Rfam assigns this 265-nucleotide RNA from Geobacillus thermodenitrificans to the family "Bacterial large signal recognition particle RNA". The family's consensus secondary structure is taken from published work. About the family: The signal recognition particle (SRP) is a universally conserved ribonucleoprotein involved in the co-translational targeting of proteins to membranes.
[Rfam]
RNA sequence: CCGUGCUAAGCGGGGAGGUAGCGGUGCCCUGUACUCGCAAUCCGCUCUAGCGAGGCUGAAUCCCUUCUCGAGGUUAGUCUGUUGUGAGGUCUGUCUCAAGCAAGUGGUGUUGACGUCUGGGUCCCGCGCAAUGGGAUUCCGUGAACCCUGUCAGGUCCGGAAGGAAGCAGCAGUAAGCGGAUGCUCCCAUGUGCCGCGGGGGUGCCUGGGCUGAGCUAACUACUUGAGCAACGCUCGGGGCAGCUAAUCGACAGAAGGUGCACGG
Numbered sequence: 001c002c003g004u005g006c007u008a009a010g011c012g013g014g015g016a017g018g019u020a021g022c023g024g025u026g027c028c029c030u031g032u033a034c035u036c037g038c039a040a041u042c043c044g045c046u047c048u049a050g051c052g053a054g055g056c057u058g059a060a061u062c063c064c065u066u067c068u069c070g071a072g073g074u075u076a077g078u079c080u081g082u083u084g085u086g087a088g089g090u091c092u093g094u095c096u097c098a099a100g101c102a103a104g105u106g107g108u109g110u111u112g113a114c115g116u117c118u119g120g121g122u123c124c125c126g127c128g129c130a131a132u133g134g135g136a137u138u139c140c141g142u143g144a145a146c147c148c149u150g151u152c153a154g155g156u157c158c159g160g161a162a163g164g165a166a167g168c169a170g171c172a173g174u175a176a177g178c179g180g181a182u183g184c185u186c187c188c189a190u191g192u193g194c195c196g197c198g199g200g201g202g203u204g205c206c207u208g209g210g211c212u213g214a215g216c217u218a219a220c221u222a223c224u225u226g227a228g229c230a231a232c233g234c235u236c237g238g239g240g241c242a243g244c245u246a247a248u249c250g251a252c253a254g255a256a257g258g259u260g261c262a263c264g265g
Stems, first nucleotide, its partner, number of pairs: 001265006009057003012030004017025001019023001034054005063258006072249005079243005085237004092230002096227005104220002106217003115211008123200006129191002132189004136182004141178002148173004156165003